[Rfam]
RNA sequence: UUGUCCUGGCCUGUGCUUUGCUCCCCUGUGCUCAACUCUAACAGGGUAGUCUGACAGGACACACAGCAGUUUUCCUCUCAAUUUCAAAAGGCAGUCCUAAGUACAGGGCUGGCUCUUAAAGGCAGGAAAGGACAAU
Numbered sequence: 001u002u003g004u005c006c007u008g009g010c011c012u013g014u015g016c017u018u019u020g021c022u023c024c025c026c027u028g029u030g031c032u033c034a035a036c037u038c039u040a041a042c043a044g045g046g047u048a049g050u051c052u053g054a055c056a057g058g059a060c061a062c063a064c065a066g067c068a069g070u071u072u073u074c075c076u077c078u079c080a081a082u083u084u085c086a087a088a089a090g091g092c093a094g095u096c097c098u099a100a101g102u103a104c105a106g107g108g109c110u111g112g113c114u115c116u117u118a119a120a121g122g123c124a125g126g127a128a129a130g131g132a133c134a135a136u
Stems, first nucleotide, its partner, number of pairs: 002061007011053001020050003024046006074131003078127002082122003087117002090114003094109005
RNA: Small Cajal body specific RNA 11